Rfam assigns this 107-nucleotide RNA from Sphingosinicella soli to the family "Glycine riboswitch aptamer". The match comes from Rfam's covariance-model search (49 bits).
RNA sequence: GUACGGCGCUCUGGAAAGCGGAUGCGCCUUCGGGUUCAUCCCACCGACGGGGUAAGCACGAGCUCGGCUCGCGCGAAACUCUCAGGUUCCGUGACAGAUGGGGGCGG
Numbered sequence: 001g002u003a004c005g006g007c008g009c010u011c012u013g014g015a016a017a018g019c020g021g022a023u024g025c026g027c028c029u030u031c032g033g034g035u036u037c038a039u040c041c042c043a044c045c046g047a048c049g050g051g052g053u054a055a056g057c058a059c060g061a062g063c064u065c066g067g068c069u070c071g072c073g074c075g076a077a078a079c080u081c082u083c084a085g086g087u088u089c090c091g092u093g094a095c096a097g098a099u100g101g102g103g104g105c106g107g
Base pairs, nucleotide, nucleotide: 007101010098011097012096013095020041021040022039023038043087044086045085046083047082050081051080052079056074057073